[Rfam]
RNA sequence: UAUGCGGGCCGGGCCCCUCUGGCGUCGGCGGGAAAUAUCCCGCUACGUGAUGUCGGACCGCAUCG
Numbered sequence: 001u002a003u004g005c006g007g008g009c010c011g012g013g014c015c016c017c018u019c020u021g022g023c024g025u026c027g028g029c030g031g032g033a034a035a036u037a038u039c040c041c042g043c044u045a046c047g048u049g050a051u052g053u054c055g056g057a058c059c060g061c062a063u064c065g
Stems, first nucleotide, its partner, number of pairs: 006059002009056004022048004031041001
RNA: terC RNA
Organism: Sphingopyxis italica